[Rfam]
RNA sequence: AUACACAUGCGGUCAUGAUAAUGCAGUUAAGGAUGCAGCAGACUGAUUAAUCCAGACAUCCCGCUACAAGCGUACGCUGGUCAGGCCUGGUCCGGUAAAGGUGCUCUGAAUACCAGAGAUAUUUCUGGCGAAACCCACCUCAAGGUGGGUUUU
Numbered sequence: 001a002u003a004c005a006c007a008u009g010c011g012g013u014c015a016u017g018a019u020a021a022u023g024c025a026g027u028u029a030a031g032g033a034u035g036c037a038g039c040a041g042a043c044u045g046a047u048u049a050a051u052c053c054a055g056a057c058a059u060c061c062c063g064c065u066a067c068a069a070g071c072g073u074a075c076g077c078u079g080g081u082c083a084g085g086c087c088u089g090g091u092c093c094g095g096u097a098a099a100g101g102u103g104c105u106c107u108g109a110a111u112a113c114c115a116g117a118g119a120u121a122u123u124u125c126u127g128g129c130g131a132a133a134c135c136c137a138c139c140u141c142a143a144g145g146u147g148g149g150u151u152u153u
Stems, first nucleotide, its partner, number of pairs: 134149006